[Rfam]
Description
The family of this 391-nucleotide part of an RNA from Ktedonobacter racemifer is "Bacterial large subunit ribosomal RNA". Gene Ontology terms of the family: ribosome and structural constituent of ribosome. Rfam's curators put it in the seed alignment.
RNA sequence: GCAAUGUCUGCGAGAACCAGACACACCGAAUGCCUGAGGGUUCCUGGGCAACGUCAAUCGUCCCAGGGUGAGUCGGGCCCUAAGCCGAGGGCGUCAUGCCGUAGGCGAUGGAAAGCAGGUCAGAGAAUCCUGCACCGGAACGUUUCGUUAUGAGCAAUGGGGGGACGCGGUAGGGAAGGUGAGCCGAUCGAAUGGACAGGAUCGGUGCCUCUGUUGAAGCGCGUGACCGAGGAAAAUCCCGGACACAGUAUGCGUAACACUGAGGCCGAGCGCCCGCGAGGGUGCGGAAGUCAUUGGUCCCCAGGCCGUCAAGAAAAGCCUCUCGCCAGAAAUUGUUCCGCCCGUACCGCAAACCGACACUGGUAGGCAGGGGGAAAUCUCCCCAGGUGAU
Numbered sequence: 001g002c003a004a005u006g007u008c009u010g011c012g013a014g015a016a017c018c019a020g021a022c023a024c025a026c027c028g029a030a031u032g033c034c035u036g037a038g039g040g041u042u043c044c045u046g047g048g049c050a051a052c053g054u055c056a057a058u059c060g061u062c063c064c065a066g067g068g069u070g071a072g073u074c075g076g077g078c079c080c081u082a083a084g085c086c087g088a089g090g091g092c093g094u095c096a097u098g099c100c101g102u103a104g105g106c107g108a109u110g111g112a113a114a115g116c117a118g119g120u121c122a123g124a125g126a127a128u129c130c131u132g133c134a135c136c137g138g139a140a141c142g143u144u145u146c147g148u149u150a151u152g153a154g155c156a157a158u159g160g161g162g163g164g165a166c167g168c169g170g171u172a173g174g175g176a177a178g179g180u181g182a183g184c185c186g187a188u189c190g191a192a193u194g195g196a197c198a199g200g201a202u203c204g205g206u207g208c209c210u211c212u213g214u215u216g217a218a219g220c221g222c223g224u225g226a227c228c229g230a231g232g233a234a235a236a237u238c239c240c241g242g243a244c245a246c247a248g249u250a251u252g253c254g255u256a257a258c259a260c261u262g263a264g265g266c267c268g269a270g271c272g273c274c275c276g277c278g279a280g281g282g283u284g285c286g287g288a289a290g291u292c293a294u295u296g297g298u299c300c301c302c303a304g305g306c307c308g309u310c311a312a313g314a315a316a317a318g319c320c321u322c323u324c325g326c327c328a329g330a331a332a333u334u335g336u337u338c339c340g341c342c343c344g345u346a347c348c349g350c351a352a353a354c355c356g357a358c359a360c361u362g363g364u365a366g367g368c369a370g371g372g373g374g375a376a377a378u379c380u381c382c383c384c385a386g387g388u389g390a391u
Stems, first nucleotide, its partner, number of pairs: 005023006024389004032368004038348002043067006052060002074344004079111002084106003088102001090100003115133005136340007144332002154326002159322004167309004173302003178295005184205006206268002210263002213260001219255003223246003227242003231239002271287001273286001275284003354363002370383004